[Rfam]
RNA sequence: CUAAAACAGGGAGAUGGCAUUCCUCCCUUGAAAAACCGCCGUAUUGGCUAAUGAUGCCUACGUUACC
Numbered sequence: 001c002u003a004a005a006a007c008a009g010g011g012a013g014a015u016g017g018c019a020u021u022c023c024u025c026c027c028u029u030g031a032a033a034a035a036c037c038g039c040c041g042u043a044u045u046g047g048c049u050a051a052u053g054a055u056g057c058c059u060a061c062g063u064u065a066c067c
Stems, first nucleotide, its partner, number of pairs: 010026004016058006038048003